[Rfam]
The family of this 178-nucleotide RNA sequence from Carassius auratus is "Small nucleolar RNA SNORA81". The organism belongs to Carassius, within Eukaryota. A search with the family's covariance model found it, with a score of 86 bits. For this family Rfam cites "A novel experimental approach for systematic identification of box H/ACA snoRNAs from eukaryotes" (Gu et al., Nucleic Acids Res, 2005). Rfam classes the family as an H/ACA-box small nucleolar RNA.

RNA sequence: UCUUCCACUCAAAAGAACUGUGCUAAAAUUGCAGAUUCAAGGUUUUCCUGGUUUAUGCGAUGAUGCUAGCAGAGUAUGAUGUGGAAGAAGAGCAGUAGCCCUGUACCAGGAAUGAAACUAAGCCAGACCUCUUUCUUAAUGUCUAGUGGCUUAUGUGUCAAGGUCCAGAGCAACAAUA
Dot-bracket structure: .................((.(((((..((((...(..(.(((....))).)..)......))))..))))).)).......................((.(((.(................(..(((..............)))..)................).))).)).......
Numbered sequence: 001u002c003u004u005c006c007a008c009u010c011a012a013a014a015g016a017a018c019u020g021u022g023c024u025a026a027a028a029u030u031g032c033a034g035a036u037u038c039a040a041g042g043u044u045u046u047c048c049u050g051g052u053u054u055a056u057g058c059g060a061u062g063a064u065g066c067u068a069g070c071a072g073a074g075u076a077u078g079a080u081g082u083g084g085a086a087g088a089a090g091a092g093c094a095g096u097a098g099c100c101c102u103g104u105a106c107c108a109g110g111a112a113u114g115a116a117a118c119u120a121a122g123c124c125a126g127a128c129c130u131c132u133u134u135c136u137u138a139a140u141g142u143c144u145a146g147u148g149g150c151u152u153a154u155g156u157g158u159c160a161a162g163g164u165c166c167a168g169a170g171c172a173a174c175a176a177u178a
Stems, first nucleotide, its partner, number of pairs: 018074002021071005028064004035054001038051001040049003098171002101168003105164001122147001125144003